RNA: Bacterial large signal recognition particle RNA
Organism: Firmicutes bacterium CAG:114
RNA sequence: CCGCACUAGUCGGGGAGAUAGCGGUGCCCUGUACCUGCAAUCCGCUGUAGCAGGGAUGAAUCCCGGACCCCCGGAGGCCUCUUGUUUCGUUAGUUGCCGGUGAGCGGUGAUGAUAAAUCGGUCCUGCGCAACGCAGCACUGUGAACCGUGUCAGGCGGGGAACCGAGCAGCACUAAGCAGAACGCCGCGUGUGCCGCGGGUUUGCCGGUUUUGAGCUGGCUGCCGGUGAGACAGGAAUGAGAGGUCCUUCAAAGGCCGGUGUGCGG
Numbered sequence: 001c002c003g004c005a006c007u008a009g010u011c012g013g014g015g016a017g018a019u020a021g022c023g024g025u026g027c028c029c030u031g032u033a034c035c036u037g038c039a040a041u042c043c044g045c046u047g048u049a050g051c052a053g054g055g056a057u058g059a060a061u062c063c064c065g066g067a068c069c070c071c072c073g074g075a076g077g078c079c080u081c082u083u084g085u086u087u088c089g090u091u092a093g094u095u096g097c098c099g100g101u102g103a104g105c106g107g108u109g110a111u112g113a114u115a116a117a118u119c120g121g122u123c124c125u126g127c128g129c130a131a132c133g134c135a136g137c138a139c140u141g142u143g144a145a146c147c148g149u150g151u152c153a154g155g156c157g158g159g160g161a162a163c164c165g166a167g168c169a170g171c172a173c174u175a176a177g178c179a180g181a182a183c184g185c186c187g188c189g190u191g192u193g194c195c196g197c198g199g200g201u202u203u204g205c206c207g208g209u210u211u212u213g214a215g216c217u218g219g220c221u222g223c224c225g226g227u228g229a230g231a232c233a234g235g236a237a238u239g240a241g242a243g244g245u246c247c248u249u250c251a252a253a254g255g256c257c258g259g260u261g262u263g264c265g266g
Base pairs, nucleotide, nucleotide: 001266002265003264004263005262006261009057010056011055012030013029014028015027017025019023034054035053036052037051038050063259064258065257066256068255069254073250074249075248076247077246079243080242081241082240083239084238085237086236087235088234096227097226098225099224100223101222104220105219106217107216108215115211116210117209118208119207120206121205122204123200124199125198126197127196128195129191130190132189133188134187136185139180140179141178142177148173149172150171151170156165157164158163